[Rfam]
RNA sequence: UCUCCGUUGCGCGACUGGCGAUAAGACGGCACGGCGGCUCUGACGCUGCCACGGCCCGUCGAGGUGGAUGAACCACCGGGAAGCGCAGCGGUUCCUGCCGUUCGCCUGGGCGCUCCAC
Numbered sequence: 001u002c003u004c005c006g007u008u009g010c011g012c013g014a015c016u017g018g019c020g021a022u023a024a025g026a027c028g029g030c031a032c033g034g035c036g037g038c039u040c041u042g043a044c045g046c047u048g049c050c051a052c053g054g055c056c057c058g059u060c061g062a063g064g065u066g067g068a069u070g071a072a073c074c075a076c077c078g079g080g081a082a083g084c085g086c087a088g089c090g091g092u093u094c095c096u097g098c099c100g101u102u103c104g105c106c107u108g109g110g111c112g113c114u115c116c117a118c
Base pairs, nucleotide, nucleotide: 004091005090006089007088008087009086010085011084012083015080016079017106018105019104020103021102064076065075066074067073096112097111098110099109
Rfam assigns this 118-nucleotide RNA sequence from Thiomonas sp. X19 to the family "ZMP/ZTP riboswitch aptamer (pfl RNA motif)". Lineage of the source: Bacteria > Pseudomonadati > Betaproteobacteria > Burkholderiales > Thiomonas. Pairs were carried over by alignment from the consensus structure, which is taken from published work.